Small nucleolar SNORD12/SNORD106: an 88-nucleotide sequence from Aegotheles bennettii. The base pairs follow the family's consensus structure, which was predicted with RNAalifold. Its Rfam clan is "SNORD12 clan". The literature on the family includes a 2001 paper in EMBO J by Huttenhofer et al., "RNomics: an experimental approach that identifies 201 candidates for novel, small, non-messenger RNAs in mouse". Rfam 15.1 lists 2,264 matches to the family in 650 species. Rfam links the family to the GO terms nucleolus and RNA processing.

RNA sequence: GCUGGUGCAGGUGAUGACCGUUUUUUCCCCAACAGAGCGGCAGUGUUGACCCUCACUGUUCAAGCCAGGUCGUGUCUGAUGCACCAGC
Numbered sequence: 001g002c003u004g005g006u007g008c009a010g011g012u013g014a015u016g017a018c019c020g021u022u023u024u025u026u027c028c029c030c031a032a033c034a035g036a037g038c039g040g041c042a043g044u045g046u047u048g049a050c051c052c053u054c055a056c057u058g059u060u061c062a063a064g065c066c067a068g069g070u071c072g073u074g075u076c077u078g079a080u081g082c083a084c085c086a087g088c
Stems, first nucleotide, its partner, number of pairs: 001088009
Dot-bracket structure: (((((((((......................................................................)))))))))